[Rfam]
RNA sequence: UUAAAGAAUUUGAAGACCUCAACUUGCAGACUUGGAGGACUUUGAAAACUUUAAUUUGCAUACUUAGAGGAUUUGAAGACUUCAACU
Numbered sequence: 001u002u003a004a005a006g007a008a009u010u011u012g013a014a015g016a017c018c019u020c021a022a023c024u025u026g027c028a029g030a031c032u033u034g035g036a037g038g039a040c041u042u043u044g045a046a047a048a049c050u051u052u053a054a055u056u057u058g059c060a061u062a063c064u065u066a067g068a069g070g071a072u073u074u075g076a077a078g079a080c081u082u083c084a085a086c087u
Stems, first nucleotide, its partner, number of pairs: 001085002004082003009077006017069001019067001021065001025060004032054006
Notes:
The record is an 87-nucleotide sequence from Solanum tuberosum, which matches "MIR8024 microRNA precursor family" in Rfam. Taxonomically the source falls in Solanum (Eukaryota, eudicotyledons, lamiids, Solanoideae). It scores 78 bits against the family's covariance model.